[Rfam]
RNA sequence: GGAUUCCAUCGGCACACCCGAGCGAAAGACGGGGUCGCAAAGCCAUGGGCCUACGGCAGUUUGUCAGGGUUGCCAGGUUGCUUCU
Numbered sequence: 001g002g003a004u005u006c007c008a009u010c011g012g013c014a015c016a017c018c019c020g021a022g023c024g025a026a027a028g029a030c031g032g033g034g035u036c037g038c039a040a041a042g043c044c045a046u047g048g049g050c051c052u053a054c055g056g057c058a059g060u061u062u063g064u065c066a067g068g069g070u071u072g073c074c075a076g077g078u079u080g081c082u083u084c085u
Base pairs, nucleotide, nucleotide: 012038013037017033018032019031020030023028041079042078043077044076046075047074048073049070050069051068056064057063058062
RNA: c-di-GMP-I riboswitch aptamer